[Rfam]
Nucleotides: 164
Stems, first nucleotide, its partner, number of pairs: 020077002023073002032063002035060002038056005092158004099151003111142002114138001116136007
Number, partner (000 for none) and nucleotide at each position: 001000u002000u003000g004000a005000u006000a007000c008000g009000a010000a011000a012000a013000a014000a015000u016000u017000a018000c019000u020077g021076c022000g023073u024072c025000c026000u027000a028000u029000u030000c031000a032063c033062u034000g035060c036059a037000u038056c039055a040054u041053u042052a043000g044000u045000g046000a047000c048000a049000g050000g051000u052042u053041g054040a055039u056038g057000a058000a059036u060035g061000g062033a063032g064000g065000g066000g067000a068000a069000a070000a071000g072024g073023a074000u075000c076021g077020c078000u079000a080000g081000a082000a083000c084000a085000a086000u087000u088000c089000a090000c091000u092158g093157u094156c095155g096000a097000c098000a099151a100150c101149g102000u103000a104000c105000c106000u107000c108000a109000u110000a111142c112141c113000c114138u115000a116136g117135a118134g119133u120132g121131u122130c123000u124000u125000c126000c127000a128000a129000u130122g131121a132120c133119g134118c135117u136116u137000a138114a139000c140000u141112g142111g143000u144000a145000a146000c147000u148000g149101c150100g151099u152000u153000u154000a155095c156094g157093a158092u159000a160000u161000a162000u163000u164000u
The family of this 164-nucleotide RNA sequence from Waltiozyma pijperi is "Small nucleolar RNA snR8". Its family is annotated with nucleolus and RNA processing in the Gene Ontology. On this family, see Parker et al., Mol Cell Biol 1988: "Genetic analysis of small nuclear RNAs in Saccharomyces cerevisiae: viable sextuple mutant". Clan: SNORA56 clan.